[Rfam]
RNA sequence: CGGUCAAGAGAUCUGCCCUUGCAGAUCGUGAAGACGGAGAUCUUCCUUGGCCG
Numbered sequence: 001c002g003g004u005c006a007a008g009a010g011a012u013c014u015g016c017c018c019u020u021g022c023a024g025a026u027c028g029u030g031a032a033g034a035c036g037g038a039g040a041u042c043u044u045c046c047u048u049g050g051c052c053g
Stems, first nucleotide, its partner, number of pairs: 001053008010027007030045005
Dot-bracket structure: ((((((((.(((((((....)))))))..(((((......)))))))))))))
RNA: DUF3800-VI RNA